[Rfam]
RNA: Burkholderia sRNA 2
Organism: Paraburkholderia xenovorans
RNA sequence: AUGAGUGCCUGUACAUCCCAAAUUCUUCGCCGCUGCGCCAGACUUGACGGCCGUUUCCGGUUUUUCCCGGGUGCCGUCGGAGUCGUGAGGCGCAACGCGAGCACUGUAGGCGAGCCGCUUGCCCCGUACGCCGGGGCGGCGGCUUUUUUA
Number, nucleotide and partner (000 for none) at each position: 001a000002u000003g000004a000005g000006u000007g038008c037009c035010u000011g033012u032013a000014c029015a000016u000017c000018c000019c000020a000021a000022a000023u000024u000025c000026u000027u000028c000029g014030c000031c000032g012033c011034u000035g009036c000037g008038c007039c000040a000041g084042a083043c082044u081045u080046g000047a000048c076049g075050g074051c073052c000053g000054u000055u000056u000057c000058c069059g068060g067061u000062u000063u000064u000065u000066c000067c060068c059069g058070g000071g000072u000073g051074c050075c049076g048077u000078c000079g000080g045081a044082g043083u042084c041085g000086u112087g111088a000089g000090g000091c000092g000093c000094a000095a000096c000097g000098c000099g000100a000101g000102c000103a000104c000105u000106g000107u000108a000109g000110g000111c087112g086113a144114g143115c142116c141117g140118c139119u000120u138121g137122c136123c135124c134125c133126g000127u000128a000129c000130g000131c000132c000133g125134g124135g123136g122137c121138g120139g118140c117141g116142g115143c114144u113145u000146u000147u000148u000149u000150a000